[Rfam]
RNA: Small nucleolar RNA snoR99
RNA sequence: UUGCUUAUGGGAAGAAUGCGUCCCUUAUAUGCAAAUUAUCCAUCUGCUUCACUUUGUCAGCUCUGUUUUCUUAUAUUUUGCUGAUCAUUUUAGGAUGGAAAAGUA
Numbered sequence: 001u002u003g004c005u006u007a008u009g010g011g012a013a014g015a016a017u018g019c020g021u022c023c024c025u026u027a028u029a030u031g032c033a034a035a036u037u038a039u040c041c042a043u044c045u046g047c048u049u050c051a052c053u054u055u056g057u058c059a060g061c062u063c064u065g066u067u068u069u070c071u072u073a074u075a076u077u078u079u080g081c082u083g084a085u086c087a088u089u090u091u092a093g094g095a096u097g098g099a100a101a102a103g104u105a
Stems, first nucleotide, its partner, number of pairs: 039099006056085006